RNA sequence: CACGUCAGCGCGCAUUGCUAACAUGGCAACAAAUCGCGCCCUCUAGACGCGAUUUGCUGCCAUGUCAACAAGCGUGCUGACGUGG
Numbered sequence: 001c002a003c004g005u006c007a008g009c010g011c012g013c014a015u016u017g018c019u020a021a022c023a024u025g026g027c028a029a030c031a032a033a034u035c036g037c038g039c040c041c042u043c044u045a046g047a048c049g050c051g052a053u054u055u056g057c058u059g060c061c062a063u064g065u066c067a068a069c070a071a072g073c074g075u076g077c078u079g080a081c082g083u084g085g
Base pairs, nucleotide, nucleotide: 001084002083003082004081005080006079007078008077009076010075011074012073013072015071016070017069019067021065023063024062025061026060027059028058030056031055032054033053034052035051036050037049038048040046
Notes
A member of the RNA family "MIR7486 microRNA precursor family" from Gossypium harknessii, 85 nucleotides long. A search with the family's covariance model found it, with a score of 70 bits. Pairs were carried over by alignment from the consensus structure, which was predicted with RNAalifold.